A member of the RNA family "ffh sRNA" from Nitratireductor aestuarii, 52 nucleotides long. The match comes from Rfam's covariance-model search (62 bits). The base pairs follow the family's consensus structure, which is taken from published work. It is annotated as a small RNA. The source organism's lineage runs through Bacteria, Pseudomonadati, Pseudomonadota, Alphaproteobacteria and Nitratireductor.
RNA sequence: GAUCCCGGAGGUCAACACCCGGCAGCGCGUGGCGCCCCCGGGUGCAUUUUGG
Numbered sequence: 001g002a003u004c005c006c007g008g009a010g011g012u013c014a015a016c017a018c019c020c021g022g023c024a025g026c027g028c029g030u031g032g033c034g035c036c037c038c039c040g041g042g043u044g045c046a047u048u049u050u051g052g
Stems, first nucleotide, its partner, number of pairs: 016044007025035004